[Rfam]
Annotation:
Rfam assigns this 102-nucleotide RNA sequence from Bacillus manliponensis to the family "Purine riboswitch aptamer".
RNA sequence: UAUAUACGGAUAGCAUUACCUCAUAUAUCCUUGAUGAUAUGGAUCAAGAGUCUCUACCUGGCAACCGAAAAUUGCUGGACUAUGGGGAAAACUAAUGAAUAU
Numbered sequence: 001u002a003u004a005u006a007c008g009g010a011u012a013g014c015a016u017u018a019c020c021u022c023a024u025a026u027a028u029c030c031u032u033g034a035u036g037a038u039a040u041g042g043a044u045c046a047a048g049a050g051u052c053u054c055u056a057c058c059u060g061g062c063a064a065c066c067g068a069a070a071a072u073u074g075c076u077g078g079a080c081u082a083u084g085g086g087g088a089a090a091a092c093u094a095a096u097g098a099a100u101a102u
Base pairs, nucleotide, nucleotide: 019087020086021085022084023083024082025081030048031047032046033045034044035043058078059077060076061075062074063073064072
The family's consensus secondary structure is taken from published work. Rfam describes the family as follows. Riboswitches are metabolite binding domains within certain messenger RNAs that serve as precision sensors for their corresponding targets.